[Rfam]
About this RNA:
The record is an 88-nucleotide RNA from Nesterenkonia natronophila, which matches "SAM riboswitch aptamer (S box leader)" in Rfam. A search with the family's covariance model found it, with a score of 65 bits. The family's consensus secondary structure is taken from published work. Taxonomically the source falls in Nesterenkonia (Bacteria, Bacillati, Actinomycetota, Actinomycetes).
RNA sequence: ACACCAUCCAGAGCGACCGAGGGAUCUGGCCCGAAGACGUCGCAGCAACCGGCCGCAGGGCAAGGUGCUAACGCCAGAACGAUGGAGA
Numbered sequence: 001a002c003a004c005c006a007u008c009c010a011g012a013g014c015g016a017c018c019g020a021g022g023g024a025u026c027u028g029g030c031c032c033g034a035a036g037a038c039g040u041c042g043c044a045g046c047a048a049c050c051g052g053c054c055g056c057a058g059g060g061c062a063a064g065g066u067g068c069u070a071a072c073g074c075c076a077g078a079a080c081g082a083u084g085g086a087g088a
Base pairs, nucleotide, nucleotide: 002087004085005084006083007082008081013043014042015041016040017039021032022031023030026077027076028075029074044069045068046067047066049065050064051061053059054058073080